A member of the RNA family "Plant small nucleolar RNA U3" from Centaurea solstitialis, 208 nucleotides long. Small nucleolar RNAs (snoRNAs) are involved in the processing and modification of rRNA in the nucleolus. There are two main classes of snoRNAs: the box C/D class, and the box H/ACA class. U3 snoRNA is a member of the box C/D class. Indeed, the box C/D element is a subset of the six short sequence elements found in all U3 snoRNAs, namely boxes A, A', B, C, C', and D. The U3 snoRNA secondary structure is characterised by a small 5' domain (with boxes A and A'), and a larger 3' domain (with boxes B, C, C', and D), the two domains being linked by a single-stranded hinge. Boxes B and C form the B/C motif, which appears to be exclusive to U3 snoRNAs, and boxes C' and D form the C'/D motif. The latter is functionally similar to the C/D motifs found in other snoRNAs. The 5' domain and the hinge region act as a pre-rRNA-binding domain. The 3' domain has conserved protein-binding sites. Both the box B/C and box C'/D motifs are sufficient for nuclear retention of U3 snoRNA. The box C'/D motif is also necessary for nucleolar localisation, stability and hyper-methylation of U3 snoRNA. Both box B/C and C'/D motifs are involved in specific protein interactions and are necessary for the rRNA processing functions of U3 snoRNA. The family is grouped with related families in Rfam's "U3 clan".
[Rfam]
RNA sequence: ACGACCUUACUUGAACAGGAUCUGUUCUAUAGGCUCGUACCUCUGUAUUCUUGAUACCUAACAAGACAGAAACCCAUAUCUGGUUAUGAACCAGAACCAUAUAGCCAGAACGUGAUUAACAGAAACUCAUGGUCUCGACCAUGGCUCAGUAGAUGAUCGUUGUCAUCCCAUCUUGAUGGGUCUUGGCAUGGUUACAUGGUUGUCUGUU
Numbered sequence: 001a002c003g004a005c006c007u008u009a010c011u012u013g014a015a016c017a018g019g020a021u022c023u024g025u026u027c028u029a030u031a032g033g034c035u036c037g038u039a040c041c042u043c044u045g046u047a048u049u050c051u052u053g054a055u056a057c058c059u060a061a062c063a064a065g066a067c068a069g070a071a072a073c074c075c076a077u078a079u080c081u082g083g084u085u086a087u088g089a090a091c092c093a094g095a096a097c098c099a100u101a102u103a104g105c106c107a108g109a110a111c112g113u114g115a116u117u118a119a120c121a122g123a124a125a126c127u128c129a130u131g132g133u134c135u136c137g138a139c140c141a142u143g144g145c146u147c148a149g150u151a152g153a154u155g156a157u158c159g160u161u162g163u164c165a166u167c168c169c170a171u172c173u174u175g176a177u178g179g180g181u182c183u184u185g186g187c188a189u190g191g192u193u194a195c196a197u198g199g200u201u202g203u204c205u206g207u208u
Stems, first nucleotide, its partner, number of pairs: 001038002003035001005033003013027006043069004048064002051061003082208001096200005102194006109161004119150002122147002127144007163186003169180001171178001
By type it is a C/D-box small nucleolar RNA.
Gene Ontology terms of the family: nucleolus and RNA processing.
The organism belongs to Centaurea, within Eukaryota.
The match comes from Rfam's covariance-model search (131 bits).